[Rfam]
RNA sequence: AGCAGCCGCUGGGGGGGCCGGAACGGCUGAGAUCCUCGGACGAGGACCACCCCGGAACCUGAUCUCGGUAAUGCGAGCGUAGGGAAUGCGGCGUGGAGCAAGC
Numbered sequence: 001a002g003c004a005g006c007c008g009c010u011g012g013g014g015g016g017g018c019c020g021g022a023a024c025g026g027c028u029g030a031g032a033u034c035c036u037c038g039g040a041c042g043a044g045g046a047c048c049a050c051c052c053c054g055g056a057a058c059c060u061g062a063u064c065u066c067g068g069u070a071a072u073g074c075g076a077g078c079g080u081a082g083g084g085a086a087u088g089c090g091g092c093g094u095g096g097a098g099c100a101a102g103c
Stems, first nucleotide, its partner, number of pairs: 006091004011053004017027004034045004058083004064077004
The family of this 103-nucleotide RNA from bacterium HR29 is "TPP riboswitch aptamer (THI element)".